[Rfam]
RNA sequence: AGAUGAGGUAGAGAUCGCGAUAAAUAAUAGUUACUUGAAAGAAAGUCAGAGAACUGAACUUGCUGAUUUCAAGCGAAAGGAUUUUUCGCAGAAGCACUGAUCGCUCUGAUUACUGUUGCUGGGACUGGCACUGAAUAUGUGCAGAACUGUCAAAGUGAUUGACCAUGAAAACUAUCUUUUUG
Number, nucleotide and partner (000 for none) at each position: 001a000002g000003a000004u000005g000006a177007g176008g175009u174010a173011g172012a000013g000014a000015u000016c000017g089018c088019g087020a086021u000022a084023a083024a082025u081026a000027a000028u000029a000030g000031u000032u000033a000034c073035u072036u071037g070038a069039a068040a067041g000042a000043a000044a000045g000046u000047c000048a000049g000050a000051g000052a000053a000054c000055u000056g000057a000058a000059c000060u000061u000062g000063c000064u000065g000066a000067u040068u039069u038070c037071a036072a035073g034074c000075g000076a000077a000078a000079g000080g000081a025082u024083u023084u022085u000086u020087c019088g018089c017090a000091g000092a000093a120094g119095c118096a117097c000098u112099g111100a110101u109102c000103g000104c000105u000106c000107u000108g000109a101110u100111u099112a098113c000114u000115g000116u000117u096118g095119c094120u093121g148122g147123g000124a000125c144126u143127g142128g000129c141130a140131c139132u000133g000134a000135a000136u000137a000138u000139g131140u130141g129142c127143a126144g125145a000146a000147c122148u121149g000150u168151c167152a166153a000154a000155g163156u162157g000158a000159u000160u000161g000162a156163c155164c000165a000166u152167g151168a150169a000170a000171a000172c011173u010174a009175u008176c007177u006178u000179u000180u000181u000182g000

Annotation
Shown here is a 182-nucleotide RNA sequence from Paenisporosarcina sp. HGH0030, a member of the family "Lysine riboswitch aptamer". Rfam describes the family as follows. Riboswitches are metabolite binding domains within certain messenger RNAs that serve as precision sensors for their corresponding targets. Its family is annotated with lysine biosynthetic process in the Gene Ontology. NCBI's taxonomy places the organism under Bacteria, Bacillota, Bacilli, Caryophanales, Paenisporosarcina.